Shown here is a 122-nucleotide RNA sequence from Buttiauxella agrestis, a member of the family "Salmonella enterica Typhi npcRNA 44". Pairs were carried over by alignment from the consensus structure, which was predicted with CMfinder.
RNA sequence: GGAACAAGCUGAAAAUUGAAACGACACACUGUUUCCUUUCUCCGUAAUAAGAAAGGAAAGUAGGUGUGUUCGAGUCUCUCAAAUUUUCACAAUCACGAUUGUGUCUCACGAGACACCUUCGG
Numbered sequence: 001g002g003a004a005c006a007a008g009c010u011g012a013a014a015a016u017u018g019a020a021a022c023g024a025c026a027c028a029c030u031g032u033u034u035c036c037u038u039u040c041u042c043c044g045u046a047a048u049a050a051g052a053a054a055g056g057a058a059a060g061u062a063g064g065u066g067u068g069u070u071c072g073a074g075u076c077u078c079u080c081a082a083a084u085u086u087u088c089a090c091a092a093u094c095a096c097g098a099u100u101g102u103g104u105c106u107c108a109c110g111a112g113a114c115a116c117c118u119u120c121g122g
Stems, first nucleotide, its partner, number of pairs: 008090001011088007022072003026069004096121003101116003